[Rfam]
RNA sequence: AUCAAGCGGCAUGACUGACGGAAGUGGAGUGACCACGGGGAGUGCCGCCUCUGAGAGCCGACCGUCUGGGCGCACCCG
Numbered sequence: 001a002u003c004a005a006g007c008g009g010c011a012u013g014a015c016u017g018a019c020g021g022a023a024g025u026g027g028a029g030u031g032a033c034c035a036c037g038g039g040g041a042g043u044g045c046c047g048c049c050u051c052u053g054a055g056a057g058c059c060g061a062c063c064g065u066c067u068g069g070g071c072g073c074a075c076c077c078g
Stems, first nucleotide, its partner, number of pairs: 004050001006048007015039002017066005024036004055073001057071003